Small nucleolar RNA SNORD91 family: a 93-nucleotide RNA sequence from Erinaceus europaeus.
NCBI's taxonomy places the organism under Eukaryota, Gnathostomata, Theria, Eulipotyphla, Erinaceus.
Rfam 15.1 lists 977 matches to the family in 495 species.
Rfam classes the family as a C/D-box small nucleolar RNA.
Gene Ontology terms of the family: RNA processing and nucleolus.

RNA sequence: UAGAGAAGUCAAUGAUGUUUUUACCUAACAUGUCUGAACCUGUCUGAAGCAUCUCAGUGAUGUUAUCUGUGUGGUUCUGAGACUUCUCUGCUA
Numbered sequence: 001u002a003g004a005g006a007a008g009u010c011a012a013u014g015a016u017g018u019u020u021u022u023a024c025c026u027a028a029c030a031u032g033u034c035u036g037a038a039c040c041u042g043u044c045u046g047a048a049g050c051a052u053c054u055c056a057g058u059g060a061u062g063u064u065a066u067c068u069g070u071g072u073g074g075u076u077c078u079g080a081g082a083c084u085u086c087u088c089u090g091c092u093a
Base pairs, nucleotide, nucleotide: 004087005086006085007084008083009082010081